This 121-nucleotide RNA from Streptomyces griseoaurantiacus belongs to the Rfam family "Streptomyces-metH RNA". Lineage of the source: Bacteria > Bacillati > Actinomycetota > Kitasatosporales > Streptomyces griseoaurantiacus.
[Rfam]
RNA sequence: CCCGUCCGCCCCGUGGACGCCUCUGACCGUACGGCGUGCCGAGGGCUACCCUGACCGGGUGCGCCUUCCGCGGGAGGCCGCAAAGCCGACAGCCGUCGCACUCCAGGGAGCAUCUUCCAUG
Numbered sequence: 001c002c003c004g005u006c007c008g009c010c011c012c013g014u015g016g017a018c019g020c021c022u023c024u025g026a027c028c029g030u031a032c033g034g035c036g037u038g039c040c041g042a043g044g045g046c047u048a049c050c051c052u053g054a055c056c057g058g059g060u061g062c063g064c065c066u067u068c069c070g071c072g073g074g075a076g077g078c079c080g081c082a083a084a085g086c087c088g089a090c091a092g093c094c095g096u097c098g099c100a101c102u103c104c105a106g107g108g109a110g111c112a113u114c115u116u117c118c119a120u121g
Stems, first nucleotide, its partner, number of pairs: 060082004065077004085099002088097003